[Rfam]
RNA: MIR2617 microRNA precursor family
RNA sequence: ACGUGUAGCAUGCCCGUAUGUGGAAUUACUCUGAUGUAUAUUUGCUAUUUAAUUGCUUUUGGGUAACGGGGUGUUAAAAUUUG
Numbered sequence: 001a002c003g004u005g006u007a008g009c010a011u012g013c014c015c016g017u018a019u020g021u022g023g024a025a026u027u028a029c030u031c032u033g034a035u036g037u038a039u040a041u042u043u044g045c046u047a048u049u050u051a052a053u054u055g056c057u058u059u060u061g062g063g064u065a066a067c068g069g070g071g072u073g074u075u076a077a078a079a080u081u082u083g
Stems, first nucleotide, its partner, number of pairs: 002083002005080001006076006013070005